The family of this 92-nucleotide sequence from Rostratula benghalensis is "Small nucleolar RNA SNORD35". The family's consensus secondary structure was predicted with PFOLD. The source organism's lineage runs through Eukaryota, Opisthokonta, Sauria, Archosauria and Rostratula. On this family, see Nicoloso et al., J Mol Biol 1996: "Intron-encoded, antisense small nucleolar RNAs: the characterization of nine novel species points to their direct role as guides for the 2'-O-ribose methylation of rRNAs". U35 is a C/D box snoRNA located in intron 6 of ribosomal protein L13A and intron 3 of ribosomal protein S11 in humans and at homologous positions in mouse and chicken ribosomal protein genes. U35 guides the methylation of 2'-O-ribose sites in 28S rRNA. Rfam links the family to the GO terms RNA processing and nucleolus. Rfam classes the family as a C/D-box small nucleolar RNA.

RNA sequence: CGGUGGUGAUGUCUGAUCUCACGAUGGUCUUCAGAGAGACCCCUCCCACGGGGGCUGUUGAUGCUGCCAGUGGCCACUGCUGAACCGAAAGG
Numbered sequence: 001c002g003g004u005g006g007u008g009a010u011g012u013c014u015g016a017u018c019u020c021a022c023g024a025u026g027g028u029c030u031u032c033a034g035a036g037a038g039a040c041c042c043c044u045c046c047c048a049c050g051g052g053g054g055c056u057g058u059u060g061a062u063g064c065u066g067c068c069a070g071u072g073g074c075c076a077c078u079g080c081u082g083a084a085c086c087g088a089a090a091g092g
Stems, first nucleotide, its partner, number of pairs: 001087004